This 76-nucleotide RNA from Xanthomonas campestris belongs to the Rfam family "Xanthomonas sRNA sX9". The organism belongs to Xanthomonas campestris pv. campestris, within Bacteria. On this family, see Schmidtke et al., Nucleic Acids Res 2011: "Genome-wide transcriptome analysis of the plant pathogen Xanthomonas identifies sRNAs with putative virulence functions". It is annotated as a small RNA.
RNA sequence: AUGUACCCCCAUACACUCCGGGUGCUCCGCGCCGGCCGCACCCACCUGACAACUUGCUCGCUACGUUUCGGUAGCC
Numbered sequence: 001a002u003g004u005a006c007c008c009c010c011a012u013a014c015a016c017u018c019c020g021g022g023u024g025c026u027c028c029g030c031g032c033c034g035g036c037c038g039c040a041c042c043c044a045c046c047u048g049a050c051a052a053c054u055u056g057c058u059c060g061c062u063a064c065g066u067u068u069c070g071g072u073a074g075c076c
Stems, first nucleotide, its partner, number of pairs: 002015004019034003046074003050070001052068001